[Rfam]
RNA: Bacillaceae-1 RNA
Organism: Psychrobacillus glaciei
Nucleotides: 067
Stems, first nucleotide, its partner, number of pairs: 011049001013047005025039005053067005
Number, partner (000 for none) and nucleotide at each position: 001000c002000a003000c004000a005000g006000a007000g008000g009000a010000a011049c012000a013047a014046a015045g016044g017043u018000u019000a020000a021000g022000a023000a024000c025039g026038c027037c028036a029035c030000a031000u032000c033000g034000u035029g036028u037027g038026g039025c040000a041000a042000c043017g044016c045015c046014u047013u048000c049011g050000u051000g052000a053067c054066c055065a056064a057063c058000a059000u060000c061000c062000u063057g064056u065055u066054g067053g